[Rfam]
RNA: Potassium channel RNA editing signal
RNA sequence: UUGGGCUACGGUGACAUGUAUCCACGGACGUGGACAGGCAUGCUCGUGGGUGCCCUUUGCGCCCUGGCAGGGGUGCUGACCAUUGCCAUGCCGGUGCCGGUCAUCGUCAACAAC
Number, nucleotide and partner (000 for none) at each position: 001u000002u113003g000004g111005g000006c000007u000008a107009c106010g105011g104012u000013g102014a101015c100016a000017u000018g097019u096020a095021u094022c000023c000024a000025c000026g000027g000028a000029c000030g000031u000032g000033g000034a000035c000036a000037g077038g076039c075040a074041u000042g000043c000044u000045c000046g000047u000048g000049g063050g062051u061052g000053c000054c000055c000056u000057u000058u000059g000060c000061g051062c050063c049064c000065u000066g000067g000068c000069a000070g000071g000072g000073g000074u040075g039076c038077u037078g000079a000080c000081c000082a000083u000084u000085g000086c000087c000088a000089u000090g000091c000092c000093g000094g021095u020096g019097c018098c000099g000100g015101u014102c013103a000104u011105c010106g009107u008108c000109a000110a000111c004112a000113a002114c000